[Rfam]
RNA: Bacterial RNase P class A
Organism: Schnuerera ultunensis
RNA sequence: UGAGUAAAUCGGAUGAUCGCGUGCUUUUGCAUGAGGAAAGUCCGUGCUCCAUAGGGCAGGAUGCUGGAUAACGUCCAGUGGGGGCGACCCUAAGGAUAGUGCAACAGAAAGAUACCGCCUAAUUUAAUAUUAGGUAAGGGUGGAAAGGUGAGGUAAGAGCUCACCAGCGGUUAGGUGACUAACUGGCUCUGUAAACCCCAUCUGGAGCAAGACCAAGAAGGGACUGAAAAAGGUGGUAGCCCGCCGCCGUCCCAAUGGUAGGUCGCAGGAACCUAUUGGUAACAAUAGGUCAUAGAUAGAUGAUCAUCUAAGACAGAACACGGCUUAUAGAUUUACUCUUCAA
Numbered sequence: 001u002g003a004g005u006a007a008a009u010c011g012g013a014u015g016a017u018c019g020c021g022u023g024c025u026u027u028u029g030c031a032u033g034a035g036g037a038a039a040g041u042c043c044g045u046g047c048u049c050c051a052u053a054g055g056g057c058a059g060g061a062u063g064c065u066g067g068a069u070a071a072c073g074u075c076c077a078g079u080g081g082g083g084g085c086g087a088c089c090c091u092a093a094g095g096a097u098a099g100u101g102c103a104a105c106a107g108a109a110a111g112a113u114a115c116c117g118c119c120u121a122a123u124u125u126a127a128u129a130u131u132a133g134g135u136a137a138g139g140g141u142g143g144a145a146a147g148g149u150g151a152g153g154u155a156a157g158a159g160c161u162c163a164c165c166a167g168c169g170g171u172u173a174g175g176u177g178a179c180u181a182a183c184u185g186g187c188u189c190u191g192u193a194a195a196c197c198c199c200a201u202c203u204g205g206a207g208c209a210a211g212a213c214c215a216a217g218a219a220g221g222g223a224c225u226g227a228a229a230a231a232g233g234u235g236g237u238a239g240c241c242c243g244c245c246g247c248c249g250u251c252c253c254a255a256u257g258g259u260a261g262g263u264c265g266c267a268g269g270a271a272c273c274u275a276u277u278g279g280u281a282a283c284a285a286u287a288g289g290u291c292a293u294a295g296a297u298a299g300a301u302g303a304u305c306a307u308c309u310a311a312g313a314c315a316g317a318a319c320a321c322g323g324c325u326u327a328u329a330g331a332u333u334u335a336c337u338c339u340u341c342a343a
Stems, first nucleotide, its partner, number of pairs: 002338009011328001012308007020033005038326003042323005047207004054242004059203005064078005079093001080091004094198002099196002101192003115139002117135007147165006167187001168185007211264004221252004226247001234246004271290008